[Rfam]
RNA sequence: GGAUGGCAAGAAUGAUGAGAAAAUUUGAUUAUGGGAAAGGAUUCAUUACUUGAUGAAUUUAACAAUUAAUGCUUAUUGAUAUUCUGACUUGCUAUUC
Numbered sequence: 001g002g003a004u005g006g007c008a009a010g011a012a013u014g015a016u017g018a019g020a021a022a023a024u025u026u027g028a029u030u031a032u033g034g035g036a037a038a039g040g041a042u043u044c045a046u047u048a049c050u051u052g053a054u055g056a057a058u059u060u061a062a063c064a065a066u067u068a069a070u071g072c073u074u075a076u077u078g079a080u081a082u083u084c085u086g087a088c089u090u091g092c093u094a095u096u097c
Base pairs, nucleotide, nucleotide: 001097002096003095004094005093006092007091008090009089010088

Shown here is a 97-nucleotide sequence from Centaurea solstitialis, a member of the family "Small nucleolar RNA Z266".
A search with the family's covariance model found it, with a score of 50 bits.
The family's consensus secondary structure was predicted with PFOLD.
The family's RNA type in Rfam is C/D-box small nucleolar RNA.
The organism belongs to Centaurea, within Eukaryota.
A reference for the family is Chen et al. (2003), "The high diversity of snoRNAs in plants: identification and comparative study of 120 snoRNA genes from Oryza sativa", Nucleic Acids Res.